[Rfam]
RNA sequence: AUGGAAGUGAUGACUAUUUCCCCAAAUGAACGAUGAUGAAUGCAAUAUGCGAUUUUACUUUCUCUCUUUUGAGAUACCAAGCCAUUAAUCUCAUCCAU
Numbered sequence: 001a002u003g004g005a006a007g008u009g010a011u012g013a014c015u016a017u018u019u020c021c022c023c024a025a026a027u028g029a030a031c032g033a034u035g036a037u038g039a040a041u042g043c044a045a046u047a048u049g050c051g052a053u054u055u056u057a058c059u060u061u062c063u064c065u066c067u068u069u070u071g072a073g074a075u076a077c078c079a080a081g082c083c084a085u086u087a088a089u090c091u092c093a094u095c096c097a098u
Stems, first nucleotide, its partner, number of pairs: 001098005
Shown here is a 98-nucleotide RNA from Cephalotus follicularis, a member of the family "Small nucleolar RNA Z103". The source organism's lineage runs through Eukaryota, Streptophyta, fabids, Oxalidales and Cephalotus. The literature on the family includes a 2003 paper in Nucleic Acids Res by Chen et al., "The high diversity of snoRNAs in plants: identification and comparative study of 120 snoRNA genes from Oryza sativa".